[Rfam]
RNA sequence: AGCAAAGUGAUGAAUGCUUCUGACCUGAAUUCCAAUGUGGAAUAAUUGCAUUAGUGGUCUUCAAAGUUCUCUGAUUUCU
Numbered sequence: 001a002g003c004a005a006a007g008u009g010a011u012g013a014a015u016g017c018u019u020c021u022g023a024c025c026u027g028a029a030u031u032c033c034a035a036u037g038u039g040g041a042a043u044a045a046u047u048g049c050a051u052u053a054g055u056g057g058u059c060u061u062c063a064a065a066g067u068u069c070u071c072u073g074a075u076u077u078c079u
Base pairs, nucleotide, nucleotide: 001079002078004076005075
Dot-bracket structure: ((.((.....................................................................)).))

This 79-nucleotide RNA sequence from Camellia sinensis belongs to the Rfam family "Small nucleolar RNA R160". Rfam links the family to the GO terms nucleolus and RNA processing. Rfam classes the family as a C/D-box small nucleolar RNA. Lineage of the source: Eukaryota > Viridiplantae > Streptophyta > Spermatophyta > Camellia sinensis. snoR160 is a C/D box small nucleolar RNA, which acts as a methylation guide for 25S ribosomal RNA in plants. snoR160 has been alternatively named snoZ270 in rice.